[Rfam]
RNA sequence: AUUUGGUUAAUGUGUGUGCGUAAGGGAUUGCAGCGGCAUCCUUUAUUUUUUUCUUUAAAAAAAUAAAGAUAUAGCGAAAAGCCCGACCCGAG
Numbered sequence: 001a002u003u004u005g006g007u008u009a010a011u012g013u014g015u016g017u018g019c020g021u022a023a024g025g026g027a028u029u030g031c032a033g034c035g036g037c038a039u040c041c042u043u044u045a046u047u048u049u050u051u052u053c054u055u056u057a058a059a060a061a062a063a064u065a066a067a068g069a070u071a072u073a074g075c076g077a078a079a080a081g082c083c084c085g086a087c088c089c090g091a092g
Base pairs, nucleotide, nucleotide: 024084025083026082028080029079033075034074038070039069040068044065045064046063047062048061049060050059051058